[Rfam]
RNA sequence: UGUAAUAAUAACACGAACACUCGUAUAUCUCCAAGGAUAUGGCUUGGAAGUUUCUACCUGCUACCGUUAUUAGCAGACUAUGAGGUAUUAUUUUGUUAGC
Numbered sequence: 001u002g003u004a005a006u007a008a009u010a011a012c013a014c015g016a017a018c019a020c021u022c023g024u025a026u027a028u029c030u031c032c033a034a035g036g037a038u039a040u041g042g043c044u045u046g047g048a049a050g051u052u053u054c055u056a057c058c059u060g061c062u063a064c065c066g067u068u069a070u071u072a073g074c075a076g077a078c079u080a081u082g083a084g085g086u087a088u089u090a091u092u093u094u095g096u097u098a099g100c
Base pairs, nucleotide, nucleotide: 020084021083022082023081024080025079030048031047032046033045034044035043058076059075060074061073062072063071
RNA: Purine riboswitch aptamer